[Rfam]
Description: The family of this 167-nucleotide RNA from Orthohepacivirus hominis is "Hepatitis C virus (HCV) cis-acting replication element (CRE)". The family's consensus secondary structure was predicted with RNAfold. The sequence is in the family's curated seed alignment. Its family is annotated with viral genome replication in the Gene Ontology.

RNA sequence: CCAAUACCCGGUGCGGGCACCCUAGAUUUAUCGGGGUGGUUCGUAGCGGGUGGACGCGGGGGGGACAUAUUUCACAGCGUGUCCCGGGCCCGACCCCGCAUGUUACUCCUGUGCCUACUCCUACUCUCCGUAGGGGUAGGCAUCUUCCUGCUUCCCGCUCGGUAAGU
Numbered sequence: 001c002c003a004a005u006a007c008c009c010g011g012u013g014c015g016g017g018c019a020c021c022c023u024a025g026a027u028u029u030a031u032c033g034g035g036g037u038g039g040u041u042c043g044u045a046g047c048g049g050g051u052g053g054a055c056g057c058g059g060g061g062g063g064g065a066c067a068u069a070u071u072u073c074a075c076a077g078c079g080u081g082u083c084c085c086g087g088g089c090c091c092g093a094c095c096c097c098g099c100a101u102g103u104u105a106c107u108c109c110u111g112u113g114c115c116u117a118c119u120c121c122u123a124c125u126c127u128c129c130g131u132a133g134g135g136g137u138a139g140g141c142a143u144c145u146u147c148c149u150g151c152u153u154c155c156c157g158c159u160c161g162g163u164a165a166g167u
Stems, first nucleotide, its partner, number of pairs: 006051005012045002016041003021036003025032002056099006062085006112142013157167001159165001